RNA sequence: GCCACGCUGAAGCAGCACAAUAAUAUUGGGGUUUCGGGUUUAUUUGACCACACCAAUAUUUACGUGCUGCUAGGGCGGAGC
Numbered sequence: 001g002c003c004a005c006g007c008u009g010a011a012g013c014a015g016c017a018c019a020a021u022a023a024u025a026u027u028g029g030g031g032u033u034u035c036g037g038g039u040u041u042a043u044u045u046g047a048c049c050a051c052a053c054c055a056a057u058a059u060u061u062a063c064g065u066g067c068u069g070c071u072a073g074g075g076c077g078g079a080g081c
Stems, first nucleotide, its partner, number of pairs: 001081002005077003011071008020061001022060008
Dot-bracket structure: ((..(((...((((((((.(.((((((((.......................)))))))))..))))))))...)))..))
Background: The family of this 81-nucleotide RNA sequence from Neopipo cinnamomea is "mir-16 microRNA precursor family". Gene Ontology terms of the family: miRNA-mediated post-transcriptional gene silencing and RISC complex. The family has 14 seed sequences and 4,705 matches in Rfam 15.1. For this family Rfam cites "Structural Basis for pri-miRNA Recognition by Drosha" (Jin et al., Mol Cell, 2020). Its Rfam clan is "mir-15 clan". Lineage of the source: Eukaryota > Teleostomi > Sarcopterygii > Neognathae > Neopipo.